This 56-nucleotide sequence from Perilla frutescens belongs to the Rfam family "Plastid-psbA-3 3UTR RNA".
[Rfam]
RNA sequence: AAGGAGCAAUAAACCCCUUCUUGUUCUAUCAAAAGAGGGUUUAUUGCUCCUUAUAU
Numbered sequence: 001a002a003g004g005a006g007c008a009a010u011a012a013a014c015c016c017c018u019u020c021u022u023g024u025u026c027u028a029u030c031a032a033a034a035g036a037g038g039g040u041u042u043a044u045u046g047c048u049c050c051u052u053a054u055a056u
Base pairs, nucleotide, nucleotide: 001052002051003050004049005048006047007046008045009044010043011042012041018035019034021032022031023030

NCBI's taxonomy places the organism under Eukaryota, Euphyllophyta, Pentapetalae, asterids, Perilla frutescens. The family's RNA type in Rfam is cis-regulatory element. Plastid psbA-3 is a non-coding RNA (ncRNA) present in plastids.